[Rfam]
RNA sequence: AUCAGAGUAGGAAAUAAAGCGUUAAGUGUCGAAAGGAUGGGAUGUUGCCUUUUGGACGAAGAACGAUUCGUUCGCGGUUUUAUUUUCGCAUUCGCUGCAU
Numbered sequence: 001a002u003c004a005g006a007g008u009a010g011g012a013a014a015u016a017a018a019g020c021g022u023u024a025a026g027u028g029u030c031g032a033a034a035g036g037a038u039g040g041g042a043u044g045u046u047g048c049c050u051u052u053u054g055g056a057c058g059a060a061g062a063a064c065g066a067u068u069c070g071u072u073c074g075c076g077g078u079u080u081u082a083u084u085u086u087c088g089c090a091u092u093c094g095c096u097g098c099a100u
Stems, first nucleotide, its partner, number of pairs: 001100002003097003010087010020076003026057002029055008040093005061073004
RNA: THF (Tetrahydrofolate) riboswitch aptamer
Organism: Enterococcus gallinarum